The family of this 102-nucleotide sequence from Serratia sp. DD3 is "Yersinia sRNA 190". A search with the family's covariance model found it, with a score of 71 bits. Rfam's curators write: The sRNA was identified by and is confirmed to have a stable secondary structure by using genome-wide structure probing at different temperatures. The function is unknown. The source organism's lineage runs through Bacteria, Pseudomonadati, Pseudomonadota, Enterobacterales and Serratia.

RNA sequence: GCGAAUUGCUACGAUAUCAUUAUAAUGCCUGACCUUGUCCCUGCCGUUGGCAUAAAAACCCCCGGUAACAGGUGACAAAUGGGUGACAUCAGGUUAUUUUUU
Numbered sequence: 001g002c003g004a005a006u007u008g009c010u011a012c013g014a015u016a017u018c019a020u021u022a023u024a025a026u027g028c029c030u031g032a033c034c035u036u037g038u039c040c041c042u043g044c045c046g047u048u049g050g051c052a053u054a055a056a057a058a059c060c061c062c063c064g065g066u067a068a069c070a071g072g073u074g075a076c077a078a079a080u081g082g083g084u085g086a087c088a089u090c091a092g093g094u095u096a097u098u099u100u101u102u
Base pairs, nucleotide, nucleotide: 008028009027014023015022016021031095032094033093034092035091038085040083041082042081043080045074046073047072048071